[Rfam]
RNA sequence: CAGCAGGCCUUCCAGCAUGGCUGGGUUUGCUGUAACCCUGUUCAUUCCUGCAGUGUCUGCUAGAUAAACCCUUGAGACGGUUUGAGGCCCCCUCCUGCCCUUCUGGGAAGGGGCUUUAGAAGUUUCGUACAGUU
Numbered sequence: 001c002a003g004c005a006g007g008c009c010u011u012c013c014a015g016c017a018u019g020g021c022u023g024g025g026u027u028u029g030c031u032g033u034a035a036c037c038c039u040g041u042u043c044a045u046u047c048c049u050g051c052a053g054u055g056u057c058u059g060c061u062a063g064a065u066a067a068a069c070c071c072u073u074g075a076g077a078c079g080g081u082u083u084g085a086g087g088c089c090c091c092c093u094c095c096u097g098c099c100c101u102u103c104u105g106g107g108a109a110g111g112g113g114c115u116u117u118a119g120a121a122g123u124u125u126c127g128u129a130c131a132g133u134u
Stems, first nucleotide, its partner, number of pairs: 003060006018044003023038005073127005088113004093108001095106003